[Rfam]
RNA sequence: GUUGACGGGGAGUUUUGUUGGAUUGCUUAAAGCUGUUGUAUCACUUUGCUGUGCAAAUCCAUGCAAAACUCUCUGUUACC
Numbered sequence: 001g002u003u004g005a006c007g008g009g010g011a012g013u014u015u016u017g018u019u020g021g022a023u024u025g026c027u028u029a030a031a032g033c034u035g036u037u038g039u040a041u042c043a044c045u046u047u048g049c050u051g052u053g054c055a056a057a058u059c060c061a062u063g064c065a066a067a068a069c070u071c072u073c074u075g076u077u078a079c080c
Stems, first nucleotide, its partner, number of pairs: 003078016020060002023056004028051001031050003